[Rfam]
This 97-nucleotide sequence from Propioniciclava sinopodophylli belongs to the Rfam family "Bacterial small signal recognition particle RNA".
From the family's description: The signal recognition particle (SRP) is a universally conserved ribonucleoprotein involved in the co-translational targeting of proteins to membranes.
Clan: SRP clan.
The family's RNA type in Rfam is non-coding RNA gene.
The source organism's lineage runs through Bacteria, Actinomycetota, Propionibacteriales, Propionibacteriaceae and Propioniciclava.
Its family is annotated with signal recognition particle, plasma membrane targeting and SRP-dependent cotranslational protein targeting to membrane, signal sequence recognition in the Gene Ontology.

RNA sequence: GUCGGGUCCCCGCGCGGUGGUACCUCGCCCAACUCCCCCAGGGCCGGAAGGCAGCAAGGGUCAGUGAGCUCUGUCAGGUGCGCGGGGGCCCUUCUGC
Numbered sequence: 001g002u003c004g005g006g007u008c009c010c011c012g013c014g015c016g017g018u019g020g021u022a023c024c025u026c027g028c029c030c031a032a033c034u035c036c037c038c039c040a041g042g043g044c045c046g047g048a049a050g051g052c053a054g055c056a057a058g059g060g061u062c063a064g065u066g067a068g069c070u071c072u073g074u075c076a077g078g079u080g081c082g083c084g085g086g087g088g089c090c091c092u093u094c095u096g097c
Stems, first nucleotide, its partner, number of pairs: 004091011015078001018076005024068005035060003043052003